DUF3800-I RNA: a 108-nucleotide RNA from Mycoplasma tauri. By type it is a small RNA. The source organism's lineage runs through Bacteria, Bacillati, Mycoplasmatota, Mollicutes and Mycoplasma. The base pairs follow the family's consensus structure, which is taken from published work. Rfam's curators write: Actinobacteria, Firmicutes, Fusobacteria, Proteobacteria (1 example), Tenericutes (2 examples).
RNA sequence: UAUAGUUGCAGGUAUUAAUACGCUGUAUACUCAUGGUAUCGAAUUAACGUUUAAGCGAUUUGUAAAAUCGCCGACCAUGAGGGCCGCUUUUAGCGGCUUUUUUAAUCU
Numbered sequence: 001u002a003u004a005g006u007u008g009c010a011g012g013u014a015u016u017a018a019u020a021c022g023c024u025g026u027a028u029a030c031u032c033a034u035g036g037u038a039u040c041g042a043a044u045u046a047a048c049g050u051u052u053a054a055g056c057g058a059u060u061u062g063u064a065a066a067a068u069c070g071c072c073g074a075c076c077a078u079g080a081g082g083g084c085c086g087c088u089u090u091u092a093g094c095g096g097c098u099u100u101u102u103u104a105a106u107c108u
Stems, first nucleotide, its partner, number of pairs: 007027005012021003030081006039074003042051003055071006082098007